[Rfam]
RNA sequence: GCCCCUAUAGCUCAGCUGGUAGAGCAACUGAUUUGUAAUCAGUAGGUCACGCGUUCGAAUCGUGUUGGGGGCA
Numbered sequence: 001g002c003c004c005c006u007a008u009a010g011c012u013c014a015g016c017u018g019g020u021a022g023a024g025c026a027a028c029u030g031a032u033u034u035g036u037a038a039u040c041a042g043u044a045g046g047u048c049a050c051g052c053g054u055u056c057g058a059a060u061c062g063u064g065u066u067g068g069g070g071g072c073a
Base pairs, nucleotide, nucleotide: 001072002071003070004069005068006067007066010025011024012023013022027043028042029041030040031039049065050064051063052062053061
RNA: tRNA